[Rfam]
RNA sequence: CGCGCGGCAGGACGGAAAGACCCCGGGACCUUUACUAUAGUUUGAUAUUGGUGCUCGGUUCGGCUUGUGUAGGAUAGGUGGGAGACUGUGAAGCUGGUACGCUAGUGUCGGUGGAGUCAACGUUGAAAUACCACUCUGGUCGAAUUGGGUGUCUAACCUAGGUCCGUAAUCCGGAUCAGGGACAGUGUCAGAUGGGUAGUUUGACUGGGGCGGUCGCCUCCCAAAAUGUAACGGAGGCGCCCAAAGGUUCCCUCAGCCUGGUUGGCAAUCAGGUAUCGAGUGCAAGUGCACAAGGGAGCUUGACUGCGAGACAGACAUGUCGAGCAGGAGCGAAAGCUGGGACUAGUGACCCGGCACUGGCAAGUGGAAGCGGUGUCGCUCAACGGAUAAAAGGUACCCCGGGGAUAACAGGCUGAUCUUCCCCAAGAGUCCAUAUCGACGGGAUGGUUUGGCACCUCGAUGUCGGCUCGUCGCAUCCUGGGGGUGGAGUCGCUCCCAAGGGUUGGGCUGUUCGCCCAUUAAAGCGGUACGCGAGCUGGGUUUAGAACGUCGUGAGACAGUUCGGUCCCUAUCCGCCGCGCGCGCA
Numbered sequence: 001c002g003c004g005c006g007g008c009a010g011g012a013c014g015g016a017a018a019g020a021c022c023c024c025g026g027g028a029c030c031u032u033u034a035c036u037a038u039a040g041u042u043u044g045a046u047a048u049u050g051g052u053g054c055u056c057g058g059u060u061c062g063g064c065u066u067g068u069g070u071a072g073g074a075u076a077g078g079u080g081g082g083a084g085a086c087u088g089u090g091a092a093g094c095u096g097g098u099a100c101g102c103u104a105g106u107g108u109c110g111g112u113g114g115a116g117u118c119a120a121c122g123u124u125g126a127a128a129u130a131c132c133a134c135u136c137u138g139g140u141c142g143a144a145u146u147g148g149g150u151g152u153c154u155a156a157c158c159u160a161g162g163u164c165c166g167u168a169a170u171c172c173g174g175a176u177c178a179g180g181g182a183c184a185g186u187g188u189c190a191g192a193u194g195g196g197u198a199g200u201u202u203g204a205c206u207g208g209g210g211c212g213g214u215c216g217c218c219u220c221c222c223a224a225a226a227u228g229u230a231a232c233g234g235a236g237g238c239g240c241c242c243a244a245a246g247g248u249u250c251c252c253u254c255a256g257c258c259u260g261g262u263u264g265g266c267a268a269u270c271a272g273g274u275a276u277c278g279a280g281u282g283c284a285a286g287u288g289c290a291c292a293a294g295g296g297a298g299c300u301u302g303a304c305u306g307c308g309a310g311a312c313a314g315a316c317a318u319g320u321c322g323a324g325c326a327g328g329a330g331c332g333a334a335a336g337c338u339g340g341g342a343c344u345a346g347u348g349a350c351c352c353g354g355c356a357c358u359g360g361c362a363a364g365u366g367g368a369a370g371c372g373g374u375g376u377c378g379c380u381c382a383a384c385g386g387a388u389a390a391a392a393g394g395u396a397c398c399c400c401g402g403g404g405a406u407a408a409c410a411g412g413c414u415g416a417u418c419u420u421c422c423c424c425a426a427g428a429g430u431c432c433a434u435a436u437c438g439a440c441g442g443g444a445u446g447g448u449u450u451g452g453c454a455c456c457u458c459g460a461u462g463u464c465g466g467c468u469c470g471u472c473g474c475a476u477c478c479u480g481g482g483g484g485u486g487g488a489g490u491c492g493c494u495c496c497c498a499a500g501g502g503u504u505g506g507g508c509u510g511u512u513c514g515c516c517c518a519u520u521a522a523a524g525c526g527g528u529a530c531g532c533g534a535g536c537u538g539g540g541u542u543u544a545g546a547a548c549g550u551c552g553u554g555a556g557a558c559a560g561u562u563c564g565g566u567c568c569c570u571a572u573c574c575g576c577c578g579c580g581c582g583c584g585c586a
Stems, first nucleotide, its partner, number of pairs: 001582008010574003014569002022403006028395005034200004041192007050153016067136001077135005084118003093112008157180003161177006203215004216238006239384001241341002247299006253279002256274006280289002304327004310321003329338003352378007360371002412453003416450001417447002420444004427437002464539001465537004469531001470528005477502002480497006504518005545563004549558003
The family of this 586-nucleotide part of an RNA from Jatrophihabitans endophyticus is "Bacterial large subunit ribosomal RNA". It scores 2814 bits against the family's covariance model. Its family is annotated with ribosome and structural constituent of ribosome in the Gene Ontology. Pairs were carried over by alignment from the consensus structure, which is taken from published work.